The record is a 223-nucleotide sequence from Blautia sp. An46, which matches "T-box leader" in Rfam. For this family Rfam cites "Solution structure of the Bacillus subtilis T-box antiterminator RNA: seven nucleotide bulge characterized by stacking and flexibility" (Gerdeman et al., J Mol Biol, 2003). Rfam links the family to the GO term tRNA binding. The family's consensus secondary structure is taken from published work. Rfam's curators write: Uncharged tRNA acts as the effector for transcription antitermination of genes in the T-box leader family. T-boxes are found upstream of many aminoacyl-tRNA synthetase genes and some amino acid biosynthetic genes usually in Gram-positive bacteria. It scores 115 bits against the family's covariance model. NCBI's taxonomy places the organism under Bacteria, Bacillota, Clostridia, Lachnospirales, Blautia. It is annotated as a cis-regulatory leader.
[Rfam]
RNA sequence: GGAAAGGCAUAGAACGAAAAGAGUACCGGACAGAUUUAUCCAGAGAGAAGGGGCCGCCGGCUGAAAGCCCUUUUAUAGAGAAAUCCGGGAAAGUGCAUUCGGGAGCCGGUCCGGUGACUGUUCAUCAGAACACAGUCGGGCACGCAGGCCAGCGUUAUGGGCAGAUAAGCGGAAGACAGAUGUCUUCAAGUAGAGUGGAACCGCGGAAAUAUUCGUCUCUAUA
Numbered sequence: 001g002g003a004a005a006g007g008c009a010u011a012g013a014a015c016g017a018a019a020a021g022a023g024u025a026c027c028g029g030a031c032a033g034a035u036u037u038a039u040c041c042a043g044a045g046a047g048a049a050g051g052g053g054c055c056g057c058c059g060g061c062u063g064a065a066a067g068c069c070c071u072u073u074u075a076u077a078g079a080g081a082a083a084u085c086c087g088g089g090a091a092a093g094u095g096c097a098u099u100c101g102g103g104a105g106c107c108g109g110u111c112c113g114g115u116g117a118c119u120g121u122u123c124a125u126c127a128g129a130a131c132a133c134a135g136u137c138g139g140g141c142a143c144g145c146a147g148g149c150c151a152g153c154g155u156u157a158u159g160g161g162c163a164g165a166u167a168a169g170c171g172g173a174a175g176a177c178a179g180a181u182g183u184c185u186u187c188a189a190g191u192a193g194a195g196u197g198g199a200a201c202c203g204c205g206g207a208a209a210u211a212u213u214c215g216u217c218u219c220u221a222u223a
Stems, first nucleotide, its partner, number of pairs: 007106002015101004026088005037075002047073006109141007143154003172187006192220004203216005